[Rfam]
RNA sequence: UAUAUUGGAAAAGCGCCUGAACUAUUCGAACGGGAAAAAGAAUAGUUGACGAGGAAGAGGUUAAUCGAAGAAAUCGGCGGAUGCCUCUCGGUUGCUACACCACAACCGCAAACUUUAGUAGAAAAACAAAAAGGUGACUUUUUGAACAAAGACUAAAGUAUUGGUGCU
Numbered sequence: 001u002a003u004a005u006u007g008g009a010a011a012a013g014c015g016c017c018u019g020a021a022c023u024a025u026u027c028g029a030a031c032g033g034g035a036a037a038a039a040g041a042a043u044a045g046u047u048g049a050c051g052a053g054g055a056a057g058a059g060g061u062u063a064a065u066c067g068a069a070g071a072a073a074u075c076g077g078c079g080g081a082u083g084c085c086u087c088u089c090g091g092u093u094g095c096u097a098c099a100c101c102a103c104a105a106c107c108g109c110a111a112a113c114u115u116u117a118g119u120a121g122a123a124a125a126a127c128a129a130a131a132a133g134g135u136g137a138c139u140u141u142u143u144g145a146a147c148a149a150a151g152a153c154u155a156a157a158g159u160a161u162u163g164g165u166g167c168u
Base pairs, nucleotide, nucleotide: 020047021046022045023044024043025042026041027040056088057087058086059085060084065077066076067075068074089108090107091106092105093104094103113158114157115156116155117154118153119152127144128143129142130141131140132139133138

The family of this 168-nucleotide RNA sequence from Anaerobacillus isosaccharinicus is "glmS glucosamine-6-phosphate activated ribozyme aptamer".
It scores 135 bits against the family's covariance model.
The family's consensus secondary structure is taken from published work.
This entry contains a glucosamine-6-phosphate activated ribozyme that is found in the mRNA for GlmS. GlmS is an enzyme that uses fructose-6-phosphate and glutamine to generate glucosamine-6-phosphate. The ribozyme catalyses self cleavage of the glmS mRNA that is thought to regulate GlmS activity.